[Rfam]
RNA sequence: CCUACCGCUUCUCCUCCCUGAGCGGGCACCGUGCGUCCCUAUUCGUAACGGUGUUAUUACCCCGGCAAAAAGACUAACUUUGCCGGGGUUUUUUUAU
Numbered sequence: 001c002c003u004a005c006c007g008c009u010u011c012u013c014c015u016c017c018c019u020g021a022g023c024g025g026g027c028a029c030c031g032u033g034c035g036u037c038c039c040u041a042u043u044c045g046u047a048a049c050g051g052u053g054u055u056a057u058u059a060c061c062c063c064g065g066c067a068a069a070a071a072g073a074c075u076a077a078c079u080u081u082g083c084c085g086g087g088g089u090u091u092u093u094u095u096a097u
Stems, first nucleotide, its partner, number of pairs: 005025005028052004033046003059089011

Shown here is a 97-nucleotide RNA sequence from Undibacterium sp. KW1, a member of the family "Burkholderia RNA 7 (anti-hemB)". A search with the family's covariance model found it, with a score of 52 bits. The literature on the family includes a 2007 paper in Nucleic Acids Res by Weinberg et al., "Identification of 22 candidate structured RNAs in bacteria using the CMfinder comparative genomics pipeline". From the family's description: This RNA motif was identified by computational search in b-proteobacteria Burkholderia. Co-purified with Hfq, expression confirmed by Northern blot.